[Rfam]
RNA sequence: GUGCAGAGCGUCUAGGGUUCCGGCCGUCAUAGCGGCGGCGCUGGUCCGAGAGACGCACUUUCCGCGGCCUCAGAGCGGGAAGACACGGCGGGGCAAAAGCCCGGGAGGU
Dot-bracket structure: .......(((((..((...(((((((((.....)))))).).)).))....))))).((((((((.........)))))))).(.[...(((.......))).)..]..
Numbered sequence: 001g002u003g004c005a006g007a008g009c010g011u012c013u014a015g016g017g018u019u020c021c022g023g024c025c026g027u028c029a030u031a032g033c034g035g036c037g038g039c040g041c042u043g044g045u046c047c048g049a050g051a052g053a054c055g056c057a058c059u060u061u062c063c064g065c066g067g068c069c070u071c072a073g074a075g076c077g078g079g080a081a082g083a084c085a086c087g088g089c090g091g092g093g094c095a096a097a098a099g100c101c102c103g104g105g106a107g108g109u
Stems, first nucleotide, its partner, number of pairs: 008056005015047002020044002022041001023039006058082008084104001086107001090102003

Description
A member of the RNA family "Guanidine-I riboswitch aptamer" from Hansschlegelia beijingensis, 109 nucleotides long. Lineage of the source: Bacteria > Pseudomonadati > Hyphomicrobiales > Methylopilaceae > Hansschlegelia. From the family's description: This family represents a conserved RNA structure found upstream of the ykkC and yxkD genes in Bacillus subtilis and related genes in other bacteria. The function of this family is unclear although it has been suggested that it may function to switch on efflux pumps and detoxification systems in response to harmful environmental molecules.